[Rfam]
RNA sequence: GCCGAUAAUUAUGCUCUAAGAUGGUGGGACACUUCCUCGGAUCGACAGGUUGGUUCCGGUAUGGCAUGUUUCUGAGCUGCCCACUCCAAGCUGAGAGUUAUGUGUCUUGUUUGAGCGAAGGCUUGAAUUAGGCGUGUACUAAAGUUGGAGAAUAAUGUGUAAGGCUGGUUUCACAGAGCAGCGACUACCUCCCACUCUCAGCAGUGGAUGGAUAACAGCUUGGCGCCGUCCAGAACCAGAACCAGUAUAGCCUGCUGGUUCGUUGUUAGCUAGACCACCAUUUUC
Numbered sequence: 001g002c003c004g005a006u007a008a009u010u011a012u013g014c015u016c017u018a019a020g021a022u023g024g025u026g027g028g029a030c031a032c033u034u035c036c037u038c039g040g041a042u043c044g045a046c047a048g049g050u051u052g053g054u055u056c057c058g059g060u061a062u063g064g065c066a067u068g069u070u071u072c073u074g075a076g077c078u079g080c081c082c083a084c085u086c087c088a089a090g091c092u093g094a095g096a097g098u099u100a101u102g103u104g105u106c107u108u109g110u111u112u113g114a115g116c117g118a119a120g121g122c123u124u125g126a127a128u129u130a131g132g133c134g135u136g137u138a139c140u141a142a143a144g145u146u147g148g149a150g151a152a153u154a155a156u157g158u159g160u161a162a163g164g165c166u167g168g169u170u171u172c173a174c175a176g177a178g179c180a181g182c183g184a185c186u187a188c189c190u191c192c193c194a195c196u197c198u199c200a201g202c203a204g205u206g207g208a209u210g211g212a213u214a215a216c217a218g219c220u221u222g223g224c225g226c227c228g229u230c231c232a233g234a235a236c237c238a239g240a241a242c243c244a245g246u247a248u249a250g251c252c253u254g255c256u257g258g259u260u261c262g263u264u265g266u267u268a269g270c271u272a273g274a275c276c277a278c279c280a281u282u283u284u285c
Base pairs, nucleotide, nucleotide: 018284019283020282021281022280023279024278025277026276027275031271032269033268035265038262039261040260042258043257044256046254047253048252049251050250051249052243053242054241055240056239058237059236062228063227064226072223073222074221075220076219077218078217079216081211082210085208086207087206088205090202091201092200093199094198095197096196097195098194099138100137101136102135103134104133105132106131107130109128110127111126112125113124114123115122116121139144147192148191149190150189158183159182160181165176166175167174
The family of this 285-nucleotide sequence from Brassica carinata is "Plant signal recognition particle RNA". Rfam classes the family as a non-coding RNA gene.